[Rfam]
RNA sequence: GCGGCGGUGAGAUAUGUUUGAUAUUCUUGGUUGUGGAUUUGCUUCGAGCUCAACCAGAUGUCAAACAUACCGUCAUCGCUGU
Numbered sequence: 001g002c003g004g005c006g007g008u009g010a011g012a013u014a015u016g017u018u019u020g021a022u023a024u025u026c027u028u029g030g031u032u033g034u035g036g037a038u039u040u041g042c043u044u045c046g047a048g049c050u051c052a053a054c055c056a057g058a059u060g061u062c063a064a065a066c067a068u069a070c071c072g073u074c075a076u077c078g079c080u081g082u
Stems, first nucleotide, its partner, number of pairs: 005078005011071001013069013029055005